Shown here is a 52-nucleotide RNA from Allobosea sp. Leaf344, a member of the family "terC RNA". The source organism's lineage runs through Bacteria, Pseudomonadati, Hyphomicrobiales, Alloboseaceae and Allobosea.
RNA sequence: CAGGCUGUCCGGGCCCCUCUGGCGAAACCCUUCGCGAUGUCGGACCACCCUG
Numbered sequence: 001c002a003g004g005c006u007g008u009c010c011g012g013g014c015c016c017c018u019c020u021g022g023c024g025a026a027a028c029c030c031u032u033c034g035c036g037a038u039g040u041c042g043g044a045c046c047a048c049c050c051u052g
Stems, first nucleotide, its partner, number of pairs: 007045006022035005